[Rfam]
RNA sequence: CAAGGAGCUUGUUGAGCUGCCAAGUGAUUUAAAGCAAUCAAAUUCUUUUAGCUUUAAAUCAUGAAGCUGUUGUACAAGCUCUUGC
Numbered sequence: 001c002a003a004g005g006a007g008c009u010u011g012u013u014g015a016g017c018u019g020c021c022a023a024g025u026g027a028u029u030u031a032a033a034g035c036a037a038u039c040a041a042a043u044u045c046u047u048u049u050a051g052c053u054u055u056a057a058a059u060c061a062u063g064a065a066g067c068u069g070u071u072g073u074a075c076a077a078g079c080u081c082u083u084g085c
Base pairs, nucleotide, nucleotide: 003083004082005081006080007079008078009077010076011075012074015071016070017069019067020066024062025061026060027059028058029057030056031055032054033053034052035051
RNA: mir-1781 microRNA precursor family
Organism: Smithornis capensis